[Rfam]
RNA sequence: GCCUUAUGCCUGAAAGGGCGACGGUAUUGAACCGGAGCGAGAAGUCAGCAGAGGCCAUGGUAGCCCCCUCGGGGGCGAAGGGC
Numbered sequence: 001g002c003c004u005u006a007u008g009c010c011u012g013a014a015a016g017g018g019c020g021a022c023g024g025u026a027u028u029g030a031a032c033c034g035g036a037g038c039g040a041g042a043a044g045u046c047a048g049c050a051g052a053g054g055c056c057a058u059g060g061u062a063g064c065c066c067c068c069u070c071g072g073g074g075g076c077g078a079a080g081g082g083c
Stems, first nucleotide, its partner, number of pairs: 001025002004023001007020005045052002054083003063076005
This 83-nucleotide RNA sequence from Pararhodospirillum oryzae belongs to the Rfam family "Group II catalytic intron D1-D4-1".
Pairs were carried over by alignment from the consensus structure.
The organism belongs to Pararhodospirillum, within Bacteria.
A search with the family's covariance model found it, with a score of 49 bits.
About the family: Group II introns are found in rRNA, tRNA and mRNA of organelles in fungi, plants and protists, and also in mRNA in bacteria.
For this family Rfam cites "Group II introns: structure and catalytic versatility of large natural ribozymes" (Lehmann and Schmidt, Crit Rev Biochem Mol Biol, 2003).